[Rfam]
Annotation:
A member of the RNA family "Y RNA" from Sapajus apella, 102 nucleotides long. A reference for the family is Teunissen et al. (2000), "Conserved features of Y RNAs: a comparison of experimentally derived secondary structures", Nucleic Acids Res. Rfam classes the family as a non-coding RNA gene.
RNA sequence: GGCUAGUUGGAAUGCAAUGGUGCUUACAACUAAUUGAUCUCAACCAGUUACAGAUUUCUUUGUUCCUUCUCCAGUACUAUUGCUUCACUUGACUGGUCAUAA
Numbered sequence: 001g002g003c004u005a006g007u008u009g010g011a012a013u014g015c016a017a018u019g020g021u022g023c024u025u026a027c028a029a030c031u032a033a034u035u036g037a038u039c040u041c042a043a044c045c046a047g048u049u050a051c052a053g054a055u056u057u058c059u060u061u062g063u064u065c066c067u068u069c070u071c072c073a074g075u076a077c078u079a080u081u082g083c084u085u086c087a088c089u090u091g092a093c094u095g096g097u098c099a100u101a102a
Stems, first nucleotide, its partner, number of pairs: 001098008010090002014086001016081006028064003032060002
The family's consensus secondary structure is taken from published work. Rfam's curators write: Y RNAs are components of the Ro ribonucleoprotein particle (Ro RNP), in association with Ro60 and La proteins. The Y RNAs and Ro60 and La proteins are well conserved, but the function of the Ro RNP is not known. In humans the RNA component can be one of four small RNAs -- hY1, hY3, hY4 and hY5.